[Rfam]
RNA: Small nucleolar RNA SNORD83
RNA sequence: GCCACAUGAAUGUAAAUAGAUUGCACUAGCGCUAUGUGCGAAGAUGACUUCUUAUCUAUCACCCUUGUCUGAUGGCU
Number, nucleotide and partner (000 for none) at each position: 001g076002c075003c074004a073005c000006a000007u000008g000009a000010a000011u000012g000013u000014a000015a000016a000017u000018a000019g000020a000021u000022u000023g000024c000025a000026c000027u000028a000029g039030c038031g037032c036033u000034a000035u000036g032037u031038g030039c029040g000041a000042a000043g000044a000045u000046g000047a000048c000049u000050u000051c000052u000053u000054a000055u000056c000057u000058a000059u000060c000061a000062c000063c000064c000065u000066u000067g000068u000069c000070u000071g000072a000073u004074g003075g002076c001077u000